RNA sequence: AUGUUAACGUAUGAUAUGUUAACAUCGGUUUUUAAAGAACCGAUGUUAGCGUGUAUGCAUUAACAU
Dot-bracket structure: (((((((.(((..(((((((((((((((((((...))))))))))))))))))).))).)))))))
RNA: MIR4359 microRNA precursor family
Organism: Glycine max